[Rfam]
RNA sequence: ACACAAGGAAGGAGGUGGUCCGACAAAUUGAUUGCUUAUGGGACAUGUGAGGUGGCUGCCCGCUAGCUGCAGCCAUGCGCUGCGGUGGGCAAAUCCACGGCAGCCACCCGGCCCCCGAACCCUCGAUGAGUCCGAUCGAGCCGAACGGUUCGGGGGCCGCCCCUU
Numbered sequence: 001a002c003a004c005a006a007g008g009a010a011g012g013a014g015g016u017g018g019u020c021c022g023a024c025a026a027a028u029u030g031a032u033u034g035c036u037u038a039u040g041g042g043a044c045a046u047g048u049g050a051g052g053u054g055g056c057u058g059c060c061c062g063c064u065a066g067c068u069g070c071a072g073c074c075a076u077g078c079g080c081u082g083c084g085g086u087g088g089g090c091a092a093a094u095c096c097a098c099g100g101c102a103g104c105c106a107c108c109c110g111g112c113c114c115c116c117g118a119a120c121c122c123u124c125g126a127u128g129a130g131u132c133c134g135a136u137c138g139a140g141c142c143g144a145a146c147g148g149u150u151c152g153g154g155g156g157c158c159g160c161c162c163c164u165u
Stems, first nucleotide, its partner, number of pairs: 014060006062090003066086002069083004109159013122140006
RNA: Actinobacteria sRNA Ms_IGR-5